Description: This 99-nucleotide RNA sequence from Streptomyces sp. TverLS-915 belongs to the Rfam family "Glycine riboswitch aptamer". The family is grouped with related families in Rfam's "Glycine riboswitch clan". It scores 60 bits against the family's covariance model.

[Rfam]
RNA sequence: UGACCCUGUGCGGGAGAGUGCCCCGGAGCUCGACACCGGGGACGCCGAAGGAGCAAAUCCUCCCCGGAAUCUCUCAGGCCCCUGUACCGCGCGGGUGAG
Numbered sequence: 001u002g003a004c005c006c007u008g009u010g011c012g013g014g015a016g017a018g019u020g021c022c023c024c025g026g027a028g029c030u031c032g033a034c035a036c037c038g039g040g041g042a043c044g045c046c047g048a049a050g051g052a053g054c055a056a057a058u059c060c061u062c063c064c065c066g067g068a069a070u071c072u073c074u075c076a077g078g079c080c081c082c083u084g085u086a087c088c089g090c091g092c093g094g095g096u097g098a099g
Stems, first nucleotide, its partner, number of pairs: 006094008021041006044079003047075002051073003058066001